Small nucleolar RNA SNORD82: a 71-nucleotide sequence from Heterocephalus glaber. The family's RNA type in Rfam is C/D-box small nucleolar RNA. Rfam's curators write: snoRNA U82 or Z25 is found in both humans and mice. NCBI's taxonomy places the organism under Eukaryota, Eumetazoa, Eutheria, Bathyergidae, Heterocephalus.
RNA sequence: AGCGCAGAGGAUGAACGACAAAGGGACUUAAUACUGAAACCUGAUGUUAACGAUGCAGUAUACUGAUGUGC
Numbered sequence: 001a002g003c004g005c006a007g008a009g010g011a012u013g014a015a016c017g018a019c020a021a022a023g024g025g026a027c028u029u030a031a032u033a034c035u036g037a038a039a040c041c042u043g044a045u046g047u048u049a050a051c052g053a054u055g056c057a058g059u060a061u062a063c064u065g066a067u068g069u070g071c
Stems, first nucleotide, its partner, number of pairs: 002071005